[Rfam]
Nucleotides: 131
Stems, first nucleotide, its partner, number of pairs: 002057002006053003013046008022036001024035002070124002073121001077117003083111001085105003089101001091099003
Number, partner (000 for none) and nucleotide at each position: 001000g002057g003056g004000a005000u006053g007052u008051g009000c010000u011000c012000a013046g014045a015044g016043c017042a018041g019040a020039g021000a022036g023000a024035c025034u026000a027000a028000a029000g030000a031000a032000a033000c034025a035024g036022c037000u038000c039020c040019u041018c042017u043016g044015u045014u046013u047000c048000c049000a050000a051008c052007a053006c054000u055000c056003c057002c058000a059000a060000u061000g062000g063000c064000a065000a066000u067000c068000u069000g070124g071123g072000u073121u074000c075000a076000c077117u078116g079115u080000g081000a082000c083111g084000a085105g086104g087103g088000g089101c090000a091099c092098a093097a094000a095000a096000c097093u098092u099091g100000g101089g102000g103087c104086c105085u106000u107000c108000c109000u110000a111083c112000c113000c114000u115079a116078c117077a118000u119000g120000u121073g122000u123071c124070c125000c126000c127000c128000u129000a130000c131000a